This 68-nucleotide RNA sequence from Alteribacillus persepolensis belongs to the Rfam family "Bacillaceae-1 RNA". NCBI's taxonomy places the organism under Bacteria, Bacillati, Bacillota, Bacillaceae, Alteribacillus.
[Rfam]
RNA sequence: CUGUAAGGUACUUCUACUAAGAACGCACACGUCCUGUGGCAACGCUGAACCGACCCACGUCGUGUGCA
Numbered sequence: 001c002u003g004u005a006a007g008g009u010a011c012u013u014c015u016a017c018u019a020a021g022a023a024c025g026c027a028c029a030c031g032u033c034c035u036g037u038g039g040c041a042a043c044g045c046u047g048a049a050c051c052g053a054c055c056c057a058c059g060u061c062g063u064g065u066g067c068a
Base pairs, nucleotide, nucleotide: 012049013048014047017044025040026039028038029037030036056066057065058064
It is annotated as a small RNA.